[Rfam]
RNA sequence: GUCAGUAACCCAACCCUAAAGGGAUUGGGCUUGUAAGAGCAAUCAAGCAAGCCAUGCUGACCAGACCACCUAGCAAUAGGUAGCCGUUAUUUGAGUCACGACACCCUGUGGAUGCGAAGCUAGUCCCCUGCUCUGUCGCUUGUGAUUAAACAGUUCCAAGGUCACUGGAACAGUGUUGCAAGCCCAACAAGCUCUUAUAACAGGUCGAAGCUAACAUUAC
Numbered sequence: 001g002u003c004a005g006u007a008a009c010c011c012a013a014c015c016c017u018a019a020a021g022g023g024a025u026u027g028g029g030c031u032u033g034u035a036a037g038a039g040c041a042a043u044c045a046a047g048c049a050a051g052c053c054a055u056g057c058u059g060a061c062c063a064g065a066c067c068a069c070c071u072a073g074c075a076a077u078a079g080g081u082a083g084c085c086g087u088u089a090u091u092u093g094a095g096u097c098a099c100g101a102c103a104c105c106c107u108g109u110g111g112a113u114g115c116g117a118a119g120c121u122a123g124u125c126c127c128c129u130g131c132u133c134u135g136u137c138g139c140u141u142g143u144g145a146u147u148a149a150a151c152a153g154u155u156c157c158a159a160g161g162u163c164a165c166u167g168g169a170a171c172a173g174u175g176u177u178g179c180a181a182g183c184c185c186a187a188c189a190a191g192c193u194c195u196u197a198u199a200a201c202a203g204g205u206c207g208a209a210g211c212u213a214a215c216a217u218u219a220c
Base pairs, nucleotide, nucleotide: 001061002060003059004058005057006056007055010029011028012026013025015022016021030051031050032049033048064206065205066204067203068081069080070079071078072077086201087200088199089198090197093194094193095192096191101136102135105130108127110126111125112124113123118212119211120210121209138183139182140181141180142179143178144177145176146175150174151173153171154170155169156168157167158166

Source information:
This 220-nucleotide RNA from Plectonema radiosum belongs to the Rfam family "HNH endonuclease-associated RNA and ORF (HEARO) RNA". The match comes from Rfam's covariance-model search (136 bits). By type it is a non-coding RNA gene. The organism belongs to Plectonema radiosum, within Bacteria.